[Rfam]
Overview:
Rfam assigns this 107-nucleotide RNA sequence from Sporolactobacillus inulinus to the family "THF (Tetrahydrofolate) riboswitch aptamer". The family has 101 seed sequences and 747 matches in Rfam 15.1. The literature on the family includes a 2010 paper in Chem Biol by Ames et al., "A eubacterial riboswitch class that senses the coenzyme tetrahydrofolate". Gene Ontology term of the family: tetrahydrofolate metabolic process. Tetrahydrofolate (THF) riboswitch was first reported for Ames et al. as an RNA motif in 5' untranslated (5'-UTR)regions of folate transport and biosynthesis genes in Firmicutes genomes.
RNA sequence: GGCAGAGUAGAUUGUUGUGGGUUACGUGCCCGGGGGACGGGGAGUUGUCCCUGGGACGAAAAACGGCGCUGGCGCCGUUUGCCGUGCAAGAAUCGCAUCCCGCUGCC
Number, nucleotide and partner (000 for none) at each position: 001g107002g106003c105004a104005g103006a000007g000008u000009a000010g094011a093012u092013u091014g000015u089016u088017g087018u086019g085020g083021g082022u081023u000024a000025c000026g057027u056028g000029c055030c054031c053032g052033g051034g050035g049036g048037a000038c000039g000040g100041g099042g098043a000044g096045u000046u000047g000048u036049c035050c034051c033052u032053g031054g030055g029056a027057c026058g000059a000060a000061a080062a079063a078064c077065g076066g075067c074068g073069c000070u000071g000072g000073c068074g067075c066076c065077g064078u063079u062080u061081g022082c021083c020084g000085u019086g018087c017088a016089a015090g000091a013092a012093u011094c010095g000096c044097a000098u042099c041100c040101c000102g000103c005104u004105g003106c002107c001